The record is a 355-nucleotide sequence from Roseobacter sp. HKCCD8822, which matches "Alphaproteobacteria transfer-messenger RNA" in Rfam. Bacterial tmRNA, also known as 10Sa RNA or SsrA, is named for its dual tRNA and mRNA-like properties. Its role is to liberate the mRNA from a stalled ribosome. To accomplish this part of the tmRNA is used as a reading frame that ends in a translation stop signal. The broken mRNA is replaced in the ribosome by the tmRNA and translation of the tmRNA leads to addition of a proteolysis tag to the incomplete protein enabling recognition by a protease. Recently a number of permuted tmRNA genes have been found encoded in two parts. tmRNAs have been identified in eubacteria and some chloroplasts but are absent from archaeal and eukaryote nuclear genomes. Lineage of the source: Bacteria > Alphaproteobacteria > Rhodobacterales > Roseobacteraceae > Roseobacter.
[Rfam]
RNA sequence: CGGCUUGAAAACCGCACCAUUGCCGCAUAUGUUCUCAGUGUUCCGGCAACGGGACUAUGGACAUAAACGCGCUCGUCAUAAGCGGAUCGGACCCGGGGGCGGUACCCGGCGGCUCCACCAAAACUCCGUCAUUUGCGGAUCAUGGGGCCGAAAUAGGAUCGACGAACGUCUAAAGGGGUUAGCUUUGUCCCGGUGAGGUACCACCGUUAUCGGUCCGAAUCGUACAGUUGCAAAUGACAACCGUGCUCCGGCAAUGGCUCUGGCAGCGUAAGCUGCUUAAGUCGCCGACUUUAAGCCCUUACGCCUAGCCGCGUAAGGCGGGGUUCGCAGGCACCUGGCAACAGAAGCCUGCACU
Numbered sequence: 001c002g003g004c005u006u007g008a009a010a011a012c013c014g015c016a017c018c019a020u021u022g023c024c025g026c027a028u029a030u031g032u033u034c035u036c037a038g039u040g041u042u043c044c045g046g047c048a049a050c051g052g053g054a055c056u057a058u059g060g061a062c063a064u065a066a067a068c069g070c071g072c073u074c075g076u077c078a079u080a081a082g083c084g085g086a087u088c089g090g091a092c093c094c095g096g097g098g099g100c101g102g103u104a105c106c107c108g109g110c111g112g113c114u115c116c117a118c119c120a121a122a123a124c125u126c127c128g129u130c131a132u133u134u135g136c137g138g139a140u141c142a143u144g145g146g147g148c149c150g151a152a153a154u155a156g157g158a159u160c161g162a163c164g165a166a167c168g169u170c171u172a173a174a175g176g177g178g179u180u181a182g183c184u185u186u187g188u189c190c191c192g193g194u195g196a197g198g199u200a201c202c203a204c205c206g207u208u209a210u211c212g213g214u215c216c217g218a219a220u221c222g223u224a225c226a227g228u229u230g231c232a233a234a235u236g237a238c239a240a241c242c243g244u245g246c247u248c249c250g251g252c253a254a255u256g257g258c259u260c261u262g263g264c265a266g267c268g269u270a271a272g273c274u275g276c277u278u279a280a281g282u283c284g285c286c287g288a289c290u291u292u293a294a295g296c297c298c299u300u301a302c303g304c305c306u307a308g309c310c311g312c313g314u315a316a317g318g319c320g321g322g323g324u325u326c327g328c329a330g331g332c333a334c335c336u337g338g339c340a341a342c343a344g345a346a347g348c349c350u351g352c353a354c355u
Stems, first nucleotide, its partner, number of pairs: 040055005059190005069183002071179004083168002087165003093109005110150007191206004197216002200214003321336004327352006
The literature on the family includes a 1996 paper in RNA by Williams and Bartel, "Phylogenetic analysis of tmRNA secondary structure".
Rfam classes the family as a non-coding RNA gene.
The family is grouped with related families in Rfam's "tRNA clan".